[Rfam]
RNA sequence: UAAUGGGGUUUUGUCCCAGCCUACCCUGUAGCGACCUACCCGGUAGCUACCCUGUAGCGGGCUUACCCUGUAACACCGUCAAAUUGCGGGAACGUCCUAAAGUCCACUGGCACCAAGGUGCGCUAGAAAUAGCGUGCUGGCACAGGAGCGAGACCUGUGGUAUGGUAAAAGUUUAGUGGAAUAUUACAAUGGAUAACCUGCAGCUAAGCCCUACAGCCCCCAGCGGCCAAGGGUGCAGUUCAACGACUAAACGGCGGUGGGUUAGCUGUUUACAGCUGGCCUAAGAUAUAGUCUGGCCGGUAAAUCGUGAAAACGAUCG
Numbered sequence: 001u002a003a004u005g006g007g008g009u010u011u012u013g014u015c016c017c018a019g020c021c022u023a024c025c026c027u028g029u030a031g032c033g034a035c036c037u038a039c040c041c042g043g044u045a046g047c048u049a050c051c052c053u054g055u056a057g058c059g060g061g062c063u064u065a066c067c068c069u070g071u072a073a074c075a076c077c078g079u080c081a082a083a084u085u086g087c088g089g090g091a092a093c094g095u096c097c098u099a100a101a102g103u104c105c106a107c108u109g110g111c112a113c114c115a116a117g118g119u120g121c122g123c124u125a126g127a128a129a130u131a132g133c134g135u136g137c138u139g140g141c142a143c144a145g146g147a148g149c150g151a152g153a154c155c156u157g158u159g160g161u162a163u164g165g166u167a168a169a170a171g172u173u174u175a176g177u178g179g180a181a182u183a184u185u186a187c188a189a190u191g192g193a194u195a196a197c198c199u200g201c202a203g204c205u206a207a208g209c210c211c212u213a214c215a216g217c218c219c220c221c222a223g224c225g226g227c228c229a230a231g232g233g234u235g236c237a238g239u240u241c242a243a244c245g246a247c248u249a250a251a252c253g254g255c256g257g258u259g260g261g262u263u264a265g266c267u268g269u270u271u272a273c274a275g276c277u278g279g280c281c282u283a284a285g286a287u288a289u290a291g292u293c294u295g296g297c298c299g300g301u302a303a304a305u306c307g308u309g310a311a312a313a314c315g316a317u318c319g
Base pairs, nucleotide, nucleotide: 074259075258076257077256078255080253085202086201087200088199089198090197095193096192097191203239204238208234209233210232211231216227217226218225243294245293246292247291248290249289261280262279263278264277265276266275267274268273304317305316306315307314308313